A member of the RNA family "Vault RNA" from Notothenia coriiceps, 107 nucleotides long. The match comes from Rfam's covariance-model search (54 bits). The family's consensus secondary structure is taken from published work. Rfam describes the family as follows. This family of RNAs are found as part of the enigmatic vault ribonucleoprotein complex. The complex consists of a major vault protein (MVP), two minor vault proteins (VPARP and TEP1), and several small untranslated RNA molecules. By type it is a non-coding RNA gene. Taxonomically the source falls in Notothenia (Eukaryota, Euteleostomi, Eupercaria, Notothenioidei).

RNA sequence: GCGCUGGUUUGGCUCAGUGGUUACUUCGAACAACAAUUCCUCUCUAGUAUUCUUACUGUUCUCUGUCCCUCCGCGGGAUCGAACCACGGGUGCAGUCCAUUGUAUUC
Numbered sequence: 001g002c003g004c005u006g007g008u009u010u011g012g013c014u015c016a017g018u019g020g021u022u023a024c025u026u027c028g029a030a031c032a033a034c035a036a037u038u039c040c041u042c043u044c045u046a047g048u049a050u051u052c053u054u055a056c057u058g059u060u061c062u063c064u065g066u067c068c069c070u071c072c073g074c075g076g077g078a079u080c081g082a083a084c085c086a087c088g089g090g091u092g093c094a095g096u097c098c099a100u101u102g103u104a105u106u107c
Base pairs, nucleotide, nucleotide: 002102003101005099006098007097012091013090014089015088017087018086019085020084025083026082027081028080029079